[Rfam]
RNA: tpke11
RNA sequence: AAUGGUUACUGAUACCGGAUACGGGCGUCGAGGCAACUCUACGCCCGUUCCGCAUGUUAAGGGUAAAAUUAAAUGG
Numbered sequence: 001a002a003u004g005g006u007u008a009c010u011g012a013u014a015c016c017g018g019a020u021a022c023g024g025g026c027g028u029c030g031a032g033g034c035a036a037c038u039c040u041a042c043g044c045c046c047g048u049u050c051c052g053c054a055u056g057u058u059a060a061g062g063g064u065a066a067a068a069u070u071a072a073a074u075g076g
Stems, first nucleotide, its partner, number of pairs: 003017003018050002021048007030039003